RNA: RNase MRP
RNA sequence: UCUUCGCUCAAAGAAUCGCAAUCAAAGCUCACACACAGACAAGCCACCAUACUCGUCUCACAUACACACACAGCUUUGGGAGAAAGUCCCCGGACCACUCUUGUCUCACCACAAGGGAUUGCGGAAACGCGCCGCCAUAGAAGCAAAAGCGGCUCAUCCACACCCACGUACCUCCAUCCACUCCUCGCACCCCUCACCCACCGCUCGCACUCCCGCUCGGACGCCGCACUGCUCGGGCUAGCAAGGCAGAGGAGACUGGUCCUCGGGCUUCCCGCAAGGGAGACGAGGAUAUGAGUCUGCGCUGCUUCCGCCGAUGCUCUUCCGCUGGGGUGCGCGCGAAUGAGCGGGAGGAGGUGGGUGAGGUUUCACUAAUGCGUGGGGAGACCAAUGUGGGCUAUAGGUGCGCGGGCAGGAACUUUUCGUCGCGGUCGAUAGAUAUGCGAUUGCCUUCGCUCACCCUUCCGUUCACUGUCUUCGCGCUGAUCACUCGUGAGAACAGCGAAGCAGAGAUUCGAGAGGAAAGUGAGGGUAACUCGAUGGGGCUUAUUCUUGAUGCGAGG
Numbered sequence: 001u002c003u004u005c006g007c008u009c010a011a012a013g014a015a016u017c018g019c020a021a022u023c024a025a026a027g028c029u030c031a032c033a034c035a036c037a038g039a040c041a042a043g044c045c046a047c048c049a050u051a052c053u054c055g056u057c058u059c060a061c062a063u064a065c066a067c068a069c070a071c072a073g074c075u076u077u078g079g080g081a082g083a084a085a086g087u088c089c090c091c092g093g094a095c096c097a098c099u100c101u102u103g104u105c106u107c108a109c110c111a112c113a114a115g116g117g118a119u120u121g122c123g124g125a126a127a128c129g130c131g132c133c134g135c136c137a138u139a140g141a142a143g144c145a146a147a148a149g150c151g152g153c154u155c156a157u158c159c160a161c162a163c164c165c166a167c168g169u170a171c172c173u174c175c176a177u178c179c180a181c182u183c184c185u186c187g188c189a190c191c192c193c194u195c196a197c198c199c200a201c202c203g204c205u206c207g208c209a210c211u212c213c214c215g216c217u218c219g220g221a222c223g224c225c226g227c228a229c230u231g232c233u234c235g236g237g238c239u240a241g242c243a244a245g246g247c248a249g250a251g252g253a254g255a256c257u258g259g260u261c262c263u264c265g266g267g268c269u270u271c272c273c274g275c276a277a278g279g280g281a282g283a284c285g286a287g288g289a290u291a292u293g294a295g296u297c298u299g300c301g302c303u304g305c306u307u308c309c310g311c312c313g314a315u316g317c318u319c320u321u322c323c324g325c326u327g328g329g330g331u332g333c334g335c336g337c338g339a340a341u342g343a344g345c346g347g348g349a350g351g352a353g354g355u356g357g358g359u360g361a362g363g364u365u366u367c368a369c370u371a372a373u374g375c376g377u378g379g380g381g382a383g384a385c386c387a388a389u390g391u392g393g394g395c396u397a398u399a400g401g402u403g404c405g406c407g408g409g410c411a412g413g414a415a416c417u418u419u420u421c422g423u424c425g426c427g428g429u430c431g432a433u434a435g436a437u438a439u440g441c442g443a444u445u446g447c448c449u450u451c452g453c454u455c456a457c458c459c460u461u462c463c464g465u466u467c468a469c470u471g472u473c474u475u476c477g478c479g480c481u482g483a484u485c486a487c488u489c490g491u492g493a494g495a496a497c498a499g500c501g502a503a504g505c506a507g508a509g510a511u512u513c514g515a516g517a518g519g520a521a522a523g524u525g526a527g528g529g530u531a532a533c534u535c536g537a538u539g540g541g542g543c544u545u546a547u548u549c550u551u552g553a554u555g556c557g558a559g560g
Base pairs, nucleotide, nucleotide: 002560003559004558005557006556007555008553009552010551011550014445015444016443017442018441019440022080023078024077025076026075027074028073038057039056040055042053043052084545085544086543088542089541090540091539120131121130122129123128316416321413322412324410325409326408330406331405332404333403334395335394337392447529448528449527450526451525452524453523454522